[Rfam]
RNA: c-di-GMP-I riboswitch aptamer
RNA sequence: UGAAUAUUUUGGCAAACCCGAUGAAAACCGGUGACGCAAAGCUAUAGGGUCUUCGUCCUUUGGACAUGACAGCCAGUUGCAGCA
Dot-bracket structure: ...........((....(((.(....).)))....))..((((...(((((....(((...)))...)))..))))))......